[Rfam]
RNA sequence: GAGUCUAACAUGCUUGCAAGUAUUUGGGUGCUUGAAACCCUUAUGCGUAAUGAAAGUAAAUGUAAAUGGGAUCUGUCACAAGUGCACCAUUGACCAGUCCAGAUUAUUUAUAUGAUGGUACUGAGUAAGAGCAAGUAUGUUGGGACCCGAAAGAUGGUGAACUAUGCCUGAAUAGGGUGAAGCCAGAGGAAACUCUGGUGGAAGCUCGUAGCGGUUCUGACGUGCAAAUCGAUCGUCAAAUUUGGGUAUAGGGGCGAAAGACUAAUCGAACCAUCUAGUAGCUGGUU
Numbered sequence: 001g002a003g004u005c006u007a008a009c010a011u012g013c014u015u016g017c018a019a020g021u022a023u024u025u026g027g028g029u030g031c032u033u034g035a036a037a038c039c040c041u042u043a044u045g046c047g048u049a050a051u052g053a054a055a056g057u058a059a060a061u062g063u064a065a066a067u068g069g070g071a072u073c074u075g076u077c078a079c080a081a082g083u084g085c086a087c088c089a090u091u092g093a094c095c096a097g098u099c100c101a102g103a104u105u106a107u108u109u110a111u112a113u114g115a116u117g118g119u120a121c122u123g124a125g126u127a128a129g130a131g132c133a134a135g136u137a138u139g140u141u142g143g144g145a146c147c148c149g150a151a152a153g154a155u156g157g158u159g160a161a162c163u164a165u166g167c168c169u170g171a172a173u174a175g176g177g178u179g180a181a182g183c184c185a186g187a188g189g190a191a192a193c194u195c196u197g198g199u200g201g202a203a204g205c206u207c208g209u210a211g212c213g214g215u216u217c218u219g220a221c222g223u224g225c226a227a228a229u230c231g232a233u234c235g236u237c238a239a240a241u242u243u244g245g246g247u248a249u250a251g252g253g254g255c256g257a258a259a260g261a262c263u264a265a266u267c268g269a270a271c272c273a274u275c276u277a278g279u280a281g282c283u284g285g286u287u
Stems, first nucleotide, its partner, number of pairs: 005143013020046004026040004050057002061086004068079001070077002146285002149282001153275006162251011173239001175207004182199007211236004216232002219230002253263002
The family of this 287-nucleotide part of an RNA from Puccinia coronata is "Archaeal large subunit ribosomal RNA". The base pairs follow the family's consensus structure, which is taken from published work. The match comes from Rfam's covariance-model search (1396 bits).